[Rfam]
RNA sequence: UCGUGCAGCCGGGGUGUUAGCGGUACCUUGUACCCACAAUCCGCUAUAGUGGGGGUGAUGUUACACGGAGGGCUUAUGCUUGUGAAGCUGCCCUCGGAAAGUGGCGUUGAGGCUUGGGUCUUACGCGACGGAACUCUGUGAACCGUGUCAGGUCGGGAACGAAGCAGCACUAAGCAGAGACCUCCGGGUGCCGUAAGGGUGCCUGGGCUGAGUUAACUACCGAGGUAACGUUCGGGAGGUAAGUUCGAAGUGUAACGCACGA
Dot-bracket structure: ((((((.(((((((((((...))))))))...(((((...........))))))))....((((((...(((((....(((.((((..((..(((((...(((((.....((((((((((((((((..((((.((((((.....((((....(((....)))....))))...))))))...)))).)...))))))...)))))))))..))).))..))))).))...)))).)))...)))))...)))))).))))))
Numbered sequence: 001u002c003g004u005g006c007a008g009c010c011g012g013g014g015u016g017u018u019a020g021c022g023g024u025a026c027c028u029u030g031u032a033c034c035c036a037c038a039a040u041c042c043g044c045u046a047u048a049g050u051g052g053g054g055g056u057g058a059u060g061u062u063a064c065a066c067g068g069a070g071g072g073c074u075u076a077u078g079c080u081u082g083u084g085a086a087g088c089u090g091c092c093c094u095c096g097g098a099a100a101g102u103g104g105c106g107u108u109g110a111g112g113c114u115u116g117g118g119u120c121u122u123a124c125g126c127g128a129c130g131g132a133a134c135u136c137u138g139u140g141a142a143c144c145g146u147g148u149c150a151g152g153u154c155g156g157g158a159a160c161g162a163a164g165c166a167g168c169a170c171u172a173a174g175c176a177g178a179g180a181c182c183u184c185c186g187g188g189u190g191c192c193g194u195a196a197g198g199g200u201g202c203c204u205g206g207g208c209u210g211a212g213u214u215a216a217c218u219a220c221c222g223a224g225g226u227a228a229c230g231u232u233c234g235g236g237a238g239g240u241a242a243g244u245u246c247g248a249a250g251u252g253u254a255a256c257g258c259a260c261g262a
Stems, first nucleotide, its partner, number of pairs: 001262006008056003011029008033053005061255006070246005079238003083234004089227002093224005101217002103214003111209009120197006126188001129186004134179006145170004153162003